Rfam assigns this 95-nucleotide RNA from Herminiimonas arsenicoxydans to the family "Burkholderia RNA 7 (anti-hemB)". Taxonomically the source falls in Herminiimonas (Bacteria, Pseudomonadota, Betaproteobacteria, Burkholderiales). This RNA motif was identified by computational search in b-proteobacteria Burkholderia. By type it is a small RNA. On this family, see Weinberg et al., Nucleic Acids Res 2007: "Identification of 22 candidate structured RNAs in bacteria using the CMfinder comparative genomics pipeline". Rfam 15.1 lists 479 matches to the family in 458 species. Its family is annotated with protein binding and bacterial biofilm matrix in the Gene Ontology. The match comes from Rfam's covariance-model search (59 bits).

[Rfam]
RNA sequence: UCUCCCGCUUCUCCUCCCUGAGCGGGGCCAGGUCGUACUAUGCGAUAUGGCGUUCUUGCCCUGGAGAUACUCCCCUUUCUCCAGGGUUUUUUUAU
Numbered sequence: 001u002c003u004c005c006c007g008c009u010u011c012u013c014c015u016c017c018c019u020g021a022g023c024g025g026g027g028c029c030a031g032g033u034c035g036u037a038c039u040a041u042g043c044g045a046u047a048u049g050g051c052g053u054u055c056u057u058g059c060c061c062u063g064g065a066g067a068u069a070c071u072c073c074c075c076u077u078u079c080u081c082c083a084g085g086g087u088u089u090u091u092u093u094a095u
Stems, first nucleotide, its partner, number of pairs: 004026006027051004033045003059086008